The record is a 377-nucleotide sequence from Levilactobacillus suantsaii, which matches "Bacterial RNase P class B" in Rfam.
RNA sequence: AAUCCUGGGUAAUUGCGGCCGGCUUAAGUCGGCUGAGGAAAGUCCAUUCUCGCACAGGCUGCGAUGCCUGUAGUGUUCGUGGUCGGUGAAAAAAUAAGCCGGCGGACGUGAGCAAUCACGUUACGGCGGGGGAAAACGACUAAGGCUUCGGCUAUGUCUGAGUACCCCUGAAAAGUGCCACAGUGACGAUACGUCUAGGGAAACCUAGGCGGUGGAACGCGGUAAACCCCUCGAGCGGGAAACCCAAACUUUGGUAGGGGAGCUUCACGUCAGGAAUUGAACGAUGCGUGGGGCAAGCAGAGAUGCUUGAGAUAGAUGAUUACCGCUGUGCGUUAGCUGCCUGAGUUAGCGUAGAGUACAAAACAUGGCUUACAGGG
Numbered sequence: 001a002a003u004c005c006u007g008g009g010u011a012a013u014u015g016c017g018g019c020c021g022g023c024u025u026a027a028g029u030c031g032g033c034u035g036a037g038g039a040a041a042g043u044c045c046a047u048u049c050u051c052g053c054a055c056a057g058g059c060u061g062c063g064a065u066g067c068c069u070g071u072a073g074u075g076u077u078c079g080u081g082g083u084c085g086g087u088g089a090a091a092a093a094a095u096a097a098g099c100c101g102g103c104g105g106a107c108g109u110g111a112g113c114a115a116u117c118a119c120g121u122u123a124c125g126g127c128g129g130g131g132g133a134a135a136a137c138g139a140c141u142a143a144g145g146c147u148u149c150g151g152c153u154a155u156g157u158c159u160g161a162g163u164a165c166c167c168c169u170g171a172a173a174a175g176u177g178c179c180a181c182a183g184u185g186a187c188g189a190u191a192c193g194u195c196u197a198g199g200g201a202a203a204c205c206u207a208g209g210c211g212g213u214g215g216a217a218c219g220c221g222g223u224a225a226a227c228c229c230c231u232c233g234a235g236c237g238g239g240a241a242a243c244c245c246a247a248a249c250u251u252u253g254g255u256a257g258g259g260g261a262g263c264u265u266c267a268c269g270u271c272a273g274g275a276a277u278u279g280a281a282c283g284a285u286g287c288g289u290g291g292g293g294c295a296a297g298c299a300g301a302g303a304u305g306c307u308u309g310a311g312a313u314a315g316a317u318g319a320u321u322a323c324c325g326c327u328g329u330g331c332g333u334u335a336g337c338u339g340c341c342u343g344a345g346u347u348a349g350c351g352u353a354g355a356g357u358a359c360a361a362a363a364c365a366u367g368g369c370u371u372a373c374a375g376g377g
Stems, first nucleotide, its partner, number of pairs: 004377003007373001008324007016035006040371003044368004049239005054071006077234003081230001082103006104124001105122006125229002128168004138158003144153003175227002177223003192211008243259003263293007294309006326356002329353010
A reference for the family is Frank and Pace (1998), "Ribonuclease P: unity and diversity in a tRNA processing ribozyme", Annu Rev Biochem. From the family's description: Ribonuclease P (RNase P) is a ubiquitous endoribonuclease, found in archaea, bacteria and eukarya as well as chloroplasts and mitochondria. A search with the family's covariance model found it, with a score of 338 bits.